The family of this 46-nucleotide RNA sequence from Vibrio proteolyticus is "uup RNA". Rfam classes the family as a cis-regulatory element. It is one of the family's seed sequences.
[Rfam]
RNA sequence: GAAGGCUGAGCUCCGCGCAAAUACACGAUGAAGUGUUGCUCGGAGC
Numbered sequence: 001g002a003a004g005g006c007u008g009a010g011c012u013c014c015g016c017g018c019a020a021a022u023a024c025a026c027g028a029u030g031a032a033g034u035g036u037u038g039c040u041c042g043g044a045g046c
Stems, first nucleotide, its partner, number of pairs: 011045005017039003